[Rfam]
RNA: tRNA
Organism: Cloacibacillus sp. An23
RNA sequence: UCCCCGAUGGCGCAAUCGGCAGCGCGGGUGACUGUUAAUCACUAGGUUCGAGGUUCGAGUCCUCGUCGGGGAG
Number, nucleotide and partner (000 for none) at each position: 001u072002c071003c070004c069005c068006g067007a066008u000009g000010g025011c024012g023013c022014a000015a000016u000017c000018g000019g000020c000021a000022g013023c012024g011025c010026g000027g043028g042029u041030g040031a039032c000033u000034g000035u000036u000037a000038a000039u031040c030041a029042c028043u027044a000045g000046g000047u000048u000049c065050g064051a063052g062053g061054u000055u000056c000057g000058a000059g000060u000061c053062c052063u051064c050065g049066u007067c006068g005069g004070g003071g002072a001073g000